Rfam assigns this 53-nucleotide sequence to the family "Glutamine-II riboswitch aptamer". A reference for the family is Huang et al. (2019), "Structure and ligand binding of the glutamine-II riboswitch", Nucleic Acids Res. The base pairs follow the family's consensus structure, which is taken from published work. It is one of the family's seed sequences.

[Rfam]
RNA sequence: UUACGUUCAUCCGUUAGGACGCAUGCCACCUGAUCAUGGAACGGGGGUCAGGU
Numbered sequence: 001u002u003a004c005g006u007u008c009a010u011c012c013g014u015u016a017g018g019a020c021g022c023a024u025g026c027c028a029c030c031u032g033a034u035c036a037u038g039g040a041a042c043g044g045g046g047g048u049c050a051g052g053u
Base pairs, nucleotide, nucleotide: 004043005042006041007040008039010019011018012017028053029052030051031050032049033048034046035045